Shown here is a 63-nucleotide sequence from Aurantimonas sp. 22II-16-19i, a member of the family "Fluoride riboswitch aptamer (crcB RNA motif)".
RNA sequence: GGGAGUGAUGGGGAUGGGGUUCCCCCGAUAACCGCCAUGUUGGCUGAUGACUCCUACCGAACG
Numbered sequence: 001g002g003g004a005g006u007g008a009u010g011g012g013g014a015u016g017g018g019g020u021u022c023c024c025c026c027g028a029u030a031a032c033c034g035c036c037a038u039g040u041u042g043g044c045u046g047a048u049g050a051c052u053c054c055u056a057c058c059g060a061a062c063g
Stems, first nucleotide, its partner, number of pairs: 010026004016054006034044003
Taxonomically the source falls in Aurantimonas (Bacteria, Pseudomonadati, Alphaproteobacteria, Aurantimonadaceae). On this family, see Zhao et al., Nat Chem Biol 2017: "An excited state underlies gene regulation of a transcriptional riboswitch".